[Rfam]
RNA sequence: GGUUUGAUGCCACGUCGCCGGUAGCAAUUUGCUUGCAGUGGCCGGCGGUGUUCAGAUUGAACCUAAAUUAAUUUCAUGUUUCGCAUAUUGAUAGGAAUCUGUGAUGAUUUAUAUACAUUCAUACACAGAGCCGUUUUUUGCGAUUACAUUU
Numbered sequence: 001g002g003u004u005u006g007a008u009g010c011c012a013c014g015u016c017g018c019c020g021g022u023a024g025c026a027a028u029u030u031g032c033u034u035g036c037a038g039u040g041g042c043c044g045g046c047g048g049u050g051u052u053c054a055g056a057u058u059g060a061a062c063c064u065a066a067a068u069u070a071a072u073u074u075c076a077u078g079u080u081u082c083g084c085a086u087a088u089u090g091a092u093a094g095g096a097a098u099c100u101g102u103g104a105u106g107a108u109u110u111a112u113a114u115a116c117a118u119u120c121a122u123a124c125a126c127a128g129a130g131c132c133g134u135u136u137u138u139u140g141c142g143a144u145u146a147c148a149u150u151u
Stems, first nucleotide, its partner, number of pairs: 002062007013050006020043003024036003081143005094132002099128003103124001104122003